Nucleotides: 164
Base pairs, nucleotide, nucleotide: 005071006070007068008067009066010065011064012063019057020056021055022054023053024052028051029050081159082158083157084156085155086154087153090140091139092138093137094136103128104127105126106125107124142152143151144150
Number, partner (000 for none) and nucleotide at each position: 001000a002000g003000u004000u005071g006070c007068u008067c009066a010065u011064u012063c013000a014000c015000c016000u017000g018000a019057u020056u021055a022054u023053g024052a025000u026000u027000g028051g029050c030000u031000c032000a033000c034000g035000c036000g037000a038000a039000a040000g041000c042000g043000u044000u045000g046000a047000u048000a049000u050029g051028c052024u053023c054022a055021u056020a057019a058000u059000g060000u061000c062000c063012g064011a065010a066009u067008g068007a069000c070006g071005c072000c073000a074000a075000a076000g077000a078000a079000a080000c081159g082158g083157u084156g085155c086154c087153u088000a089000u090140c091139g092138u093137u094136c095000a096000c097000c098000c099000g100000a101000c102000c103128g104127a105126u106125a107124a108000u109000c110000g111000u112000u113000g114000c115000g116000u117000a118000a119000g120000c121000a122000c123000g124107u125106u126105a127104u128103c129000a130000a131000g132000c133000a134000u135000c136094g137093a138092a139091c140090g141000a142152c143151a144150c145000g146000u147000u148000g149000a150144g151143u152142g153087a154086g155085g156084c157083a158082c159081c160000a161000c162000c163000u164000c